The record is a 61-nucleotide RNA sequence from Calidithermus roseus, which matches "Fluoride riboswitch aptamer (crcB RNA motif)" in Rfam.
For this family Rfam cites "Widespread genetic switches and toxicity resistance proteins for fluoride" (Baker et al., Science, 2012).
Lineage of the source: Bacteria > Thermotogati > Deinococcota > Thermaceae > Calidithermus.
Its family is annotated with positive regulation of gene expression and response to fluoride in the Gene Ontology.
[Rfam]
RNA sequence: GGUUUCAAAGGCGAUGGAGCUCGCCAUAACCGCCCCCAGGGCUGAUAGCUCCUACUCCAAA
Numbered sequence: 001g002g003u004u005u006c007a008a009a010g011g012c013g014a015u016g017g018a019g020c021u022c023g024c025c026a027u028a029a030c031c032g033c034c035c036c037c038a039g040g041g042c043u044g045a046u047a048g049c050u051c052c053u054a055c056u057c058c059a060a061a
Stems, first nucleotide, its partner, number of pairs: 010025004016052006032042003